The family of this 416-nucleotide RNA sequence from Medicago truncatula is "Early nodulin 40". Lineage of the source: Eukaryota > Gunneridae > Papilionoideae > Trifolieae > Medicago. The literature on the family includes a 2007 paper in Nucleic Acids Res by Gultyaev and Roussis, "Identification of conserved secondary structures and expansion segments in enod40 RNAs reveals new enod40 homologues in plants". The match comes from Rfam's covariance-model search (85 bits). Rfam classes the family as a non-coding RNA gene.
RNA sequence: AUGAAUCUUUGUUGGCAAAAAUCUAUUUAUGAUUAAGAAUGAAGAAUUUGUGUGAAAGGGUCCUUACAAUGACCCUUCACACUCUCCAACUUCAACAGUUUGCUUAAGCUUAGCCAUUGGUUUCUAUGAUCAGUGAUCACAAGGAGAAUAUGGAGAAUCAGAAGAAGCUAGUUAGUAAAGAAUAAUUAAUUAGCGCGUGUUUGAAUUCACGAUGAGUUUGACAUGUCAGAGUGUGCGAUUGUGUUUUUGACAAAAAUUACACUUUGGAGCUCAAGGAAAUCACGGUGCUACCAUGAUAUCGUCAAGCUCACUAUGAUUCCAACCAUGCACUUAGUUCUCCGUAGGAAGAGAAGCUUUGGCUAUAGGUUGGUAAACCGGCAAGUCACAAAAAGGCGAUGGACCGCAUUAGAGGUCCU
Numbered sequence: 001a002u003g004a005a006u007c008u009u010u011g012u013u014g015g016c017a018a019a020a021a022u023c024u025a026u027u028u029a030u031g032a033u034u035a036a037g038a039a040u041g042a043a044g045a046a047u048u049u050g051u052g053u054g055a056a057a058g059g060g061u062c063c064u065u066a067c068a069a070u071g072a073c074c075c076u077u078c079a080c081a082c083u084c085u086c087c088a089a090c091u092u093c094a095a096c097a098g099u100u101u102g103c104u105u106a107a108g109c110u111u112a113g114c115c116a117u118u119g120g121u122u123u124c125u126a127u128g129a130u131c132a133g134u135g136a137u138c139a140c141a142a143g144g145a146g147a148a149u150a151u152g153g154a155g156a157a158u159c160a161g162a163a164g165a166a167g168c169u170a171g172u173u174a175g176u177a178a179a180g181a182a183u184a185a186u187u188a189a190u191u192a193g194c195g196c197g198u199g200u201u202u203g204a205a206u207u208c209a210c211g212a213u214g215a216g217u218u219u220g221a222c223a224u225g226u227c228a229g230a231g232u233g234u235g236c237g238a239u240u241g242u243g244u245u246u247u248u249g250a251c252a253a254a255a256a257u258u259a260c261a262c263u264u265u266g267g268a269g270c271u272c273a274a275g276g277a278a279a280u281c282a283c284g285g286u287g288c289u290a291c292c293a294u295g296a297u298a299u300c301g302u303c304a305a306g307c308u309c310a311c312u313a314u315g316a317u318u319c320c321a322a323c324c325a326u327g328c329a330c331u332u333a334g335u336u337c338u339c340c341g342u343a344g345g346a347a348g349a350g351a352a353g354c355u356u357u358g359g360c361u362a363u364a365g366g367u368u369g370g371u372a373a374a375c376c377g378g379c380a381a382g383u384c385a386c387a388a389a390a391a392g393g394c395g396a397u398g399g400a401c402c403g404c405a406u407u408a409g410a411g412g413u414c415c416u
Stems, first nucleotide, its partner, number of pairs: 051081005098375006117364001399414004